This 51-nucleotide sequence from Polerovirus APVA belongs to the Rfam family "Exoribonuclease-resistant RNA (xrRNA) plant-infecting virus (class 3)". The family's RNA type in Rfam is cis-regulatory element. Gene Ontology term of the family: viral RNA genome replication. Rfam's curators write: Exoribonuclease-resistant RNA (xrRNA) plant-infecting virus (class 3) is a ncRNA that was reported in Plant viruses. For this family Rfam cites "The pseudoknot structure of a viral RNA reveals a conserved mechanism for programmed exoribonuclease resistance" (Gezelle et al., bioRxiv [Preprint], 2024). It is one of the family's seed sequences.
RNA sequence: GAACUAGCCGGACAAACAUCAGUUGCAAGUACCGGAAGUUAAGUCUGAUUA
Numbered sequence: 001g002a003a004c005u006a007g008c009c010g011g012a013c014a015a016a017c018a019u020c021a022g023u024u025g026c027a028a029g030u031a032c033c034g035g036a037a038g039u040u041a042a043g044u045c046u047g048a049u050u051a
Stems, first nucleotide, its partner, number of pairs: 001040002008035002011033001012030002018049005